Rfam assigns this 143-nucleotide sequence from Dorcoceras hygrometricum to the family "MIR168 microRNA precursor family".
A search with the family's covariance model found it, with a score of 100 bits.
[Rfam]
RNA sequence: GUUGCCGCGGCCUCUGAUUCGCUUGGUGCAGGUCGGGAACUGCCUACGCCAUUGUCGGCGAUCAAAUUCCAUCCAGAUCGCCUGCUUGCCCGGUGCAUAAAGGUUCCCGCCUUGCAUCAACUGAAUCGGAGAUCGCGGUGAAU
Numbered sequence: 001g002u003u004g005c006c007g008c009g010g011c012c013u014c015u016g017a018u019u020c021g022c023u024u025g026g027u028g029c030a031g032g033u034c035g036g037g038a039a040c041u042g043c044c045u046a047c048g049c050c051a052u053u054g055u056c057g058g059c060g061a062u063c064a065a066a067u068u069c070c071a072u073c074c075a076g077a078u079c080g081c082c083u084g085c086u087u088g089c090c091c092g093g094u095g096c097a098u099a100a101a102g103g104u105u106c107c108c109g110c111c112u113u114g115c116a117u118c119a120a121c122u123g124a125a126u127c128g129g130a131g132a133u134c135g136c137g138g139u140g141a142a143u
Stems, first nucleotide, its partner, number of pairs: 013130002017126004023120010034109005040103002
Notes:
The base pairs follow the family's consensus structure, which was predicted with WAR. Taxonomically the source falls in Dorcoceras (Eukaryota, Streptophytina, Magnoliopsida, Didymocarpoideae).